This 138-nucleotide RNA from Acerihabitans arboris belongs to the Rfam family "radC RNA". Rfam classes the family as a cis-regulatory element. The match comes from Rfam's covariance-model search (46 bits). The family's consensus secondary structure is taken from published work.

[Rfam]
RNA sequence: AUUAUUUUGUACCUGUUGUCUGAGGACAACACCCCAGGUUGCCACGUCCUGCAAGGCAACGCUCAGGGAUAAUCUGAGUGGUCAAUCCCUAGCCCGCUUCGUCACCGGCAGCGCGGGUAUCGCUUCGGCGGUGGUGGC
Numbered sequence: 001a002u003u004a005u006u007u008u009g010u011a012c013c014u015g016u017u018g019u020c021u022g023a024g025g026a027c028a029a030c031a032c033c034c035c036a037g038g039u040u041g042c043c044a045c046g047u048c049c050u051g052c053a054a055g056g057c058a059a060c061g062c063u064c065a066g067g068g069a070u071a072a073u074c075u076g077a078g079u080g081g082u083c084a085a086u087c088c089c090u091a092g093c094c095c096g097c098u099u100c101g102u103c104a105c106c107g108g109c110a111g112c113g114c115g116g117g118u119a120u121c122g123c124u125u126c127g128g129c130g131g132u133g134g135u136g137g138c
Base pairs, nucleotide, nucleotide: 015030016029017028018027019026020025038060039059040058041057042056043055046083048081049080061079062078063077064076065075066074067073116135118133119132120131121130122129123128